Rfam assigns this 206-nucleotide RNA sequence to the family "raiA RNA".
By type it is a riboswitch.
[Rfam]
RNA sequence: UCGUAUUCGGGUCUGUGGUUGCAAACCGAAGCCAGACGCGGGCAAAACGGUCCACGUAAGUUGAGCUAUGUCUCAAUGAGCAUGGCGCGUUCUAGAAGUAAGACCGACCAACAGAAAAGUUGAGAGAAGGGGCGUAGGGCGCUCUUGCGAUGAGCAAACCUUCCUGUCGGCGAGUGUGGGGGCAAAAACCAGGUCAGCCGAUGCGA
Numbered sequence: 001u002c003g004u005a006u007u008c009g010g011g012u013c014u015g016u017g018g019u020u021g022c023a024a025a026c027c028g029a030a031g032c033c034a035g036a037c038g039c040g041g042g043c044a045a046a047a048c049g050g051u052c053c054a055c056g057u058a059a060g061u062u063g064a065g066c067u068a069u070g071u072c073u074c075a076a077u078g079a080g081c082a083u084g085g086c087g088c089g090u091u092c093u094a095g096a097a098g099u100a101a102g103a104c105c106g107a108c109c110a111a112c113a114g115a116a117a118a119g120u121u122g123a124g125a126g127a128a129g130g131g132g133c134g135u136a137g138g139g140c141g142c143u144c145u146u147g148c149g150a151u152g153a154g155c156a157a158a159c160c161u162u163c164c165u166g167u168c169g170g171c172g173a174g175u176g177u178g179g180g181g182g183c184a185a186a187a188a189c190c191a192g193g194u195c196a197g198c199c200g201a202u203g204c205g206a
Stems, first nucleotide, its partner, number of pairs: 001206006008200003013197003016191005029177001031175001032042001035091006051085002059077001061075001063073001083184001104170005109122004126163004134155002140149003
The family's consensus secondary structure is taken from published work.